[Rfam]
RNA sequence: ACACGGGAAAGGAGGUGGUCCAGAAGUGAAUUCUUUGCGGACUCGUGAGGUGGCUGCUCCCUAGCAGCGCACCGUCCGGCCCGGCGAUCCGCCACGGUGGCGGUCAGCGCGCUGGAAUACCGAGCAGUCACCCGGCCCGUGGGCGCUCCGGAAGUCCGACCGGAGACGCGGGCCUCUGUCUGAGAGGUCGUACCGCCCACGGGCCGUCU
Numbered sequence: 001a002c003a004c005g006g007g008a009a010a011g012g013a014g015g016u017g018g019u020c021c022a023g024a025a026g027u028g029a030a031u032u033c034u035u036u037g038c039g040g041a042c043u044c045g046u047g048a049g050g051u052g053g054c055u056g057c058u059c060c061c062u063a064g065c066a067g068c069g070c071a072c073c074g075u076c077c078g079g080c081c082c083g084g085c086g087a088u089c090c091g092c093c094a095c096g097g098u099g100g101c102g103g104u105c106a107g108c109g110c111g112c113u114g115g116a117a118u119a120c121c122g123a124g125c126a127g128u129c130a131c132c133c134g135g136c137c138c139g140u141g142g143g144c145g146c147u148c149c150g151g152a153a154g155u156c157c158g159a160c161c162g163g164a165g166a167c168g169c170g171g172g173c174c175u176c177u178g179u180c181u182g183a184g185a186g187g188u189c190g191u192a193c194c195g196c197c198c199a200c201g202g203g204c205c206g207u208c209u
Stems, first nucleotide, its partner, number of pairs: 014058006061115005067110004072103005133206013147164005
Shown here is a 209-nucleotide RNA from Nocardioides mesophilus, a member of the family "Actinobacteria sRNA Ms_IGR-5". By type it is a small RNA. NCBI's taxonomy places the organism under Bacteria, Bacillati, Actinomycetota, Propionibacteriales, Nocardioides. A reference for the family is Li et al. (2013), "Identification of small RNAs in Mycobacterium smegmatis using heterologous Hfq", RNA.